Rfam assigns this 103-nucleotide sequence from Canis lupus to the family "mir-8834 microRNA precursor family". Its family is annotated with miRNA-mediated post-transcriptional gene silencing and RISC complex in the Gene Ontology. It scores 90 bits against the family's covariance model.
Nucleotides: 103
Base pairs, nucleotide, nucleotide: 003095005093009088010087011086012084013083014082019077020076021075022074023073024072025071027070028069029068030067031066032065033064034063035062038058039057040056041055
Number, partner (000 for none) and nucleotide at each position: 001000a002000g003095g004000a005093g006000g007000a008000a009088c010087a011086g012084c013083c014082c015000c016000a017000g018000u019077g020076g021075c022074g023073g024072g025071g026000c027070a028069g029068c030067u031066c032065u033064g034063g035062a036000a037000a038058c039057c040056u041055g042000g043000a044000u045000u046000c047000a048000g049000c050000c051000c052000c053000c054000g055041c056040a057039g058038g059000a060000a061000c062035u063034c064033c065032g066031g067030a068029g069028c070027u071025c072024u073023c074022c075021g076020u077019c078000u079000g080000u081000a082014g083013g084012g085000c086011c087010u088009g089000g090000a091000g092000g093005c094000a095003c096000g097000g098000g099000g100000c101000g102000g103000g